RNA: Archaeal large subunit ribosomal RNA, nucleotides 1743 to 2099
Organism: Candidatus Aciduliprofundum boonei
RNA sequence: GGGACCAAUCGACCCGAGGGAAUUCGGCAAAUUAGCCCUGUACCUUCGGAAGAAGGGGUGCCUACCUCGAGAAGAGGUAGGUCGCAGUGACUAGGGGACUCCGACUGUUUAACAAAAACAUAGGUCGGUGCAAGCCCGAAAGGGUGUGUAUACCGGCUGAAGCCUGCCCAGUGCCGGUACCUGAAACCCGGGUACAACCGGGCGAAGGGCCGGUAAACGGCGGGGGUAACUAUGACCCUCUUAAGGUAGCGUAAUACCUCGCCGCUUAAUUGGCGGCUUGCAUGAAGGCUCAACGAGGGUCCCACUGUCCCCGGGUCGAGUCCCCUGAAACCGAUGUACUGGUGCACAAUCCAGUCU
Numbered sequence: 001g002g003g004a005c006c007a008a009u010c011g012a013c014c015c016g017a018g019g020g021a022a023u024u025c026g027g028c029a030a031a032u033u034a035g036c037c038c039u040g041u042a043c044c045u046u047c048g049g050a051a052g053a054a055g056g057g058g059u060g061c062c063u064a065c066c067u068c069g070a071g072a073a074g075a076g077g078u079a080g081g082u083c084g085c086a087g088u089g090a091c092u093a094g095g096g097g098a099c100u101c102c103g104a105c106u107g108u109u110u111a112a113c114a115a116a117a118a119c120a121u122a123g124g125u126c127g128g129u130g131c132a133a134g135c136c137c138g139a140a141a142g143g144g145u146g147u148g149u150a151u152a153c154c155g156g157c158u159g160a161a162g163c164c165u166g167c168c169c170a171g172u173g174c175c176g177g178u179a180c181c182u183g184a185a186a187c188c189c190g191g192g193u194a195c196a197a198c199c200g201g202g203c204g205a206a207g208g209g210c211c212g213g214u215a216a217a218c219g220g221c222g223g224g225g226g227u228a229a230c231u232a233u234g235a236c237c238c239u240c241u242u243a244a245g246g247u248a249g250c251g252u253a254a255u256a257c258c259u260c261g262c263c264g265c266u267u268a269a270u271u272g273g274c275g276g277c278u279u280g281c282a283u284g285a286a287g288g289c290u291c292a293a294c295g296a297g298g299g300u301c302c303c304a305c306u307g308u309c310c311c312c313g314g315g316u317c318g319a320g321u322c323c324c325c326u327g328a329a330a331c332c333g334a335u336g337u338a339c340u341g342g343u344g345c346a347c348a349a350u351c352c353a354g355u356c357u
Stems, first nucleotide, its partner, number of pairs: 001324004009319008018310003035059005044049001060082009083087001095303007102295002106120003123158008131148001134145004161290004166221003171218002173214005180209003187202005222240006241245001261277006338355005